[Rfam]
RNA: Alpha operon ribosome binding site
RNA sequence: UCUGUGCGUUUCCAUUUGAGUAUCCUGAAAACGGGCUUUUCGGCAUGGGACGCAUUAGUAAUUAAAUAGGAGUGCAUAGUGGCCCGUAUAGCAGGCAUUAACAUUCCUGAU
Numbered sequence: 001u002c003u004g005u006g007c008g009u010u011u012c013c014a015u016u017u018g019a020g021u022a023u024c025c026u027g028a029a030a031a032c033g034g035g036c037u038u039u040u041c042g043g044c045a046u047g048g049g050a051c052g053c054a055u056u057a058g059u060a061a062u063u064a065a066a067u068a069g070g071a072g073u074g075c076a077u078a079g080u081g082g083c084c085c086g087u088a089u090a091g092c093a094g095g096c097a098u099u100a101a102c103a104u105u106c107c108u109g110a111u
Base pairs, nucleotide, nucleotide: 004055005054006053007052008051009050011049012048013047024095025094026093032086033085034084035083040110041109042108